[Rfam]
RNA sequence: GGCUGCGUUCAGCCUCUUUACGGUGCUGCCUUGUGCCGUCUUGAUCAAGCAGCAUUGUACAGGGCUAUGAAGGCAGAG
Numbered sequence: 001g002g003c004u005g006c007g008u009u010c011a012g013c014c015u016c017u018u019u020a021c022g023g024u025g026c027u028g029c030c031u032u033g034u035g036c037c038g039u040c041u042u043g044a045u046c047a048a049g050c051a052g053c054a055u056u057g058u059a060c061a062g063g064g065c066u067a068u069g070a071a072g073g074c075a076g077a078g
Base pairs, nucleotide, nucleotide: 014064015063016062017061019059020058021057022056023055024054025053026052027051028050030049031048032047033046
The record is a 78-nucleotide RNA from Salarias fasciatus, which matches "mir-103/107 microRNA precursor family" in Rfam. About the family: This family consists of the mammalian microRNA (miRNA) precursors mir-103 and mir107. The organism belongs to Salarias, within Eukaryota. A search with the family's covariance model found it, with a score of 83 bits. The base pairs follow the family's consensus structure, which was predicted with RNAalifold.